[Rfam]
RNA sequence: GAGGAAAAGAAGAAGCACCCGCUUCUCACCUGAUUGACACAAGAUUCCAAUAAGUAGUUAACAGGUAAUUACGUGAACAUUUUAGCUUUUUAUGUUUGUUAUCGUAAGUGUGGGUGGUUUUCCAUCCACACUUUUUUAUUGUU
Numbered sequence: 001g002a003g004g005a006a007a008a009g010a011a012g013a014a015g016c017a018c019c020c021g022c023u024u025c026u027c028a029c030c031u032g033a034u035u036g037a038c039a040c041a042a043g044a045u046u047c048c049a050a051u052a053a054g055u056a057g058u059u060a061a062c063a064g065g066u067a068a069u070u071a072c073g074u075g076a077a078c079a080u081u082u083u084a085g086c087u088u089u090u091u092a093u094g095u096u097u098g099u100u101a102u103c104g105u106a107a108g109u110g111u112g113g114g115u116g117g118u119u120u121u122c123c124a125u126c127c128a129c130a131c132u133u134u135u136u137u138a139u140u141g142u143u
Stems, first nucleotide, its partner, number of pairs: 011026006028066003036059003039055002109130009

Rfam assigns this 143-nucleotide RNA from Niallia nealsonii to the family "Ribosomal protein L20 leader". Its family is annotated with regulation of gene expression in the Gene Ontology. From the family's description: This family is a putative r-protein leader autoregulatory structure found in B. subtilis and other low-GC Gram-positive bacteria. It is located in the 5' untranslated regions of mRNAs encoding initiation factor 3 followed by ribosomal proteins L35 and L20 (infC-rpmI-rplT). A Rho-independent transcription terminator structure that is probably involved in regulation is included at the 3' end. A search with the family's covariance model found it, with a score of 82 bits. Pairs were carried over by alignment from the consensus structure, which was predicted with CMfinder. For this family Rfam cites "Diverse mechanisms for regulating ribosomal protein synthesis in Escherichia coli" (Zengel and Lindahl, Prog Nucleic Acid Res Mol Biol, 1994). Lineage of the source: Bacteria > Bacillota > Caryophanales > Bacillaceae > Niallia. The family's RNA type in Rfam is cis-regulatory leader.